[Rfam]
RNA: EcpR1
Organism: Pararhizobium polonicum
RNA sequence: UUACCCCAUGAUGUCAGGUCCGCCGCAUCUCCUGGGUCGUGGGGUUUGUCGGCUGAUUUGUAACCAAUGCGGUUCCUCGUGCCGCGGUUGCGGUCAGCCGACGCCCAU
Numbered sequence: 001u002u003a004c005c006c007c008a009u010g011a012u013g014u015c016a017g018g019u020c021c022g023c024c025g026c027a028u029c030u031c032c033u034g035g036g037u038c039g040u041g042g043g044g045u046u047u048g049u050c051g052g053c054u055g056a057u058u059u060g061u062a063a064c065c066a067a068u069g070c071g072g073u074u075c076c077u078c079g080u081g082c083c084g085c086g087g088u089u090g091c092g093g094u095c096a097g098c099c100g101a102c103g104c105c106c107a108u
Stems, first nucleotide, its partner, number of pairs: 003045008014035005047103011